[Rfam]
RNA: c-di-AMP riboswitch aptamer (ydaO/yuaA leader)
RNA sequence: AACAAUCACGCGCUGAAUUCCCGCUACCCGGGAAACGGGGGAACCAUCCGGCCGCCACGGCCGCGGGGUGAAUCGCUGGGCAACCUGCGUAGGGCUUCUCCCGGCCCGAAUCCGGCAGCUAACUCCGUAAGCGACAAAAGGAGAGAAA
Numbered sequence: 001a002a003c004a005a006u007c008a009c010g011c012g013c014u015g016a017a018u019u020c021c022c023g024c025u026a027c028c029c030g031g032g033a034a035a036c037g038g039g040g041g042a043a044c045c046a047u048c049c050g051g052c053c054g055c056c057a058c059g060g061c062c063g064c065g066g067g068g069u070g071a072a073u074c075g076c077u078g079g080g081c082a083a084c085c086u087g088c089g090u091a092g093g094g095c096u097u098c099u100c101c102c103g104g105c106c107c108g109a110a111u112c113c114g115g116c117a118g119c120u121a122a123c124u125c126c127g128u129a130a131g132c133g134a135c136a137a138a139a140g141g142a143g144a145g146a147a148a
Base pairs, nucleotide, nucleotide: 011133012132013131014130018034019033020032021031022030023029035128036127037126038125039124040123045065066113067112068111074089075088076087092107093106094105095104